A member of the RNA family "ZMP/ZTP riboswitch aptamer (pfl RNA motif)" from Glutamicibacter uratoxydans, 77 nucleotides long. The organism belongs to Glutamicibacter, within Bacteria. Its family is annotated with regulation of purine nucleotide biosynthetic process and one-carbon metabolic process in the Gene Ontology. The match comes from Rfam's covariance-model search (40 bits). Rfam 15.1 lists 3,295 matches to the family in 2,545 species. The base pairs follow the family's consensus structure, which is taken from published work.

RNA sequence: AAUUAACCGCGUGACUGGCGUUGGGUGGGUAACCACCGGGGAGCUAAUUGUGCGUGCCGCGCGCCUGGGUCCGCACA
Numbered sequence: 001a002a003u004u005a006a007c008c009g010c011g012u013g014a015c016u017g018g019c020g021u022u023g024g025g026u027g028g029g030u031a032a033c034c035a036c037c038g039g040g041g042a043g044c045u046a047a048u049u050g051u052g053c054g055u056g057c058c059g060c061g062c063g064c065c066u067g068g069g070u071c072c073g074c075a076c077a
Base pairs, nucleotide, nucleotide: 003047004046005045011044012043015040016039017065018064019063020062021061025036026035027034028033054072056070057069058068
Dot-bracket structure: ..[[[.....[[..[[(((((...((((....))))..]]..]]]]]......[.[[[..)))))..]]].].....